[Rfam]
RNA: Small nucleolar RNA SNORD72
RNA sequence: GACUUGUUAGUAAGGUGUUUAUUAAAAAUGUCUGAACAUACGAACUGUAUAGUGAUUUCAGUGCGUUACUGGGAUAAGCU
Numbered sequence: 001g002a003c004u005u006g007u008u009a010g011u012a013a014g015g016u017g018u019u020u021a022u023u024a025a026a027a028a029u030g031u032c033u034g035a036a037c038a039u040a041c042g043a044a045c046u047g048u049a050u051a052g053u054g055a056u057u058u059c060a061g062u063g064c065g066u067u068a069c070u071g072g073g074a075u076a077a078g079c080u
Base pairs, nucleotide, nucleotide: 003078004077005076006075007074008073